RNA sequence: ACACAAUGCAAUAUUUUGCCUAAGACAGCAGGUCCCCAUCCGGGGUUAAAGGUUAUUCGCCUACCGAGGAUUAUGAAAUGCGGCAGACAGACAGUCUGCGGUAUAUUAAGACAUGAAUCUACGUCCUCUGAAGUCUUGUGCUUUGGAGGACUUUUUUAUGAAUUG
Numbered sequence: 001a002c003a004c005a006a007u008g009c010a011a012u013a014u015u016u017u018g019c020c021u022a023a024g025a026c027a028g029c030a031g032g033u034c035c036c037c038a039u040c041c042g043g044g045g046u047u048a049a050a051g052g053u054u055a056u057u058c059g060c061c062u063a064c065c066g067a068g069g070a071u072u073a074u075g076a077a078a079u080g081c082g083g084c085a086g087a088c089a090g091a092c093a094g095u096c097u098g099c100g101g102u103a104u105a106u107u108a109a110g111a112c113a114u115g116a117a118u119c120u121a122c123g124u125c126c127u128c129u130g131a132a133g134u135c136u137u138g139u140g141c142u143u144u145g146g147a148g149g150a151c152u153u154u155u156u157u158a159u160g161a162a163u164u165g
Base pairs, nucleotide, nucleotide: 028064030062031061032060033059034045035044036043124150125149126148127147128146129145130144131143132142133141
About this RNA: Ribosomal protein L10 leader: a 165-nucleotide sequence from Eubacterium sp. CAG:38. The source organism's lineage runs through Bacteria, Bacillati, Eubacteriales, Eubacteriaceae and Eubacterium. The match comes from Rfam's covariance-model search (53 bits). By type it is a cis-regulatory leader.